[Rfam]
RNA sequence: GUUGGAUAUGGAGACAUCUAUCCUAAGACUCUUUUGGGUAAAAUAGUAGGAGGUCUUUGCUGUAUUGCCGGAGUUUUGGUAAUUGCUCUCCCCAUACCAAUUAUUGUGAACAAU
Numbered sequence: 001g002u003u004g005g006a007u008a009u010g011g012a013g014a015c016a017u018c019u020a021u022c023c024u025a026a027g028a029c030u031c032u033u034u035u036g037g038g039u040a041a042a043a044u045a046g047u048a049g050g051a052g053g054u055c056u057u058u059g060c061u062g063u064a065u066u067g068c069c070g071g072a073g074u075u076u077u078g079g080u081a082a083u084u085g086c087u088c089u090c091c092c093c094a095u096a097c098c099a100a101u102u103a104u105u106g107u108g109a110a111c112a113a114u
Stems, first nucleotide, its partner, number of pairs: 001114002004111001007108005013102002019096003037077002040074001049063001051061001

A member of the RNA family "Potassium channel RNA editing signal" from Polypterus senegalus, 114 nucleotides long. Rfam 15.1 lists 14,095 matches to the family in 1,000 species. By type it is a cis-regulatory element. Rfam describes the family as follows. This family represents a group of sequences related to the human potassium channel Kv1.1 hairpin element which directs the efficient modification of an adenosine to inosine by an adenosine deaminase acting on RNA (ADAR). The ADAR modification causes an isoleucine/valine recoding event which lies in the ion-conducting pore of the potassium channel. A search with the family's covariance model found it, with a score of 80 bits. The base pairs follow the family's consensus structure, which is taken from published work. Taxonomically the source falls in Polypterus (Eukaryota, Craniata, Vertebrata, Cladistia).